Shown here is a 67-nucleotide sequence from Cnephaeus nilssonii, a member of the family "mir-9256 microRNA precursor family". The family has 8 seed sequences and 31,772 matches in Rfam 15.1. Gene Ontology terms of the family: miRNA-mediated post-transcriptional gene silencing and RISC complex. It scores 83 bits against the family's covariance model.
RNA sequence: AUAUACACUGAGUGGCCAGAUUAUUAUGAUUUAUAAUCGCAUAAUAAUCUGGCCACUCAGUGAAUAU
Numbered sequence: 001a002u003a004u005a006c007a008c009u010g011a012g013u014g015g016c017c018a019g020a021u022u023a024u025u026a027u028g029a030u031u032u033a034u035a036a037u038c039g040c041a042u043a044a045u046a047a048u049c050u051g052g053c054c055a056c057u058c059a060g061u062g063a064a065u066a067u
Stems, first nucleotide, its partner, number of pairs: 004064001006062012019049010